[Rfam]
RNA sequence: CCUUUUCUUAAAAUUGGCUUCACUUCCUGUCACAUAGCCAAACAGGAAGUGAGGCCAAUUUUAAGAAAAGG
Numbered sequence: 001c002c003u004u005u006u007c008u009u010a011a012a013a014u015u016g017g018c019u020u021c022a023c024u025u026c027c028u029g030u031c032a033c034a035u036a037g038c039c040a041a042a043c044a045g046g047a048a049g050u051g052a053g054g055c056c057a058a059u060u061u062u063a064a065g066a067a068a069a070g071g
Base pairs, nucleotide, nucleotide: 001071002070003069005067006066007065008064010062011061012060013059014058015057016056017055018054019053020052021051022050023049024048025047026046027045028044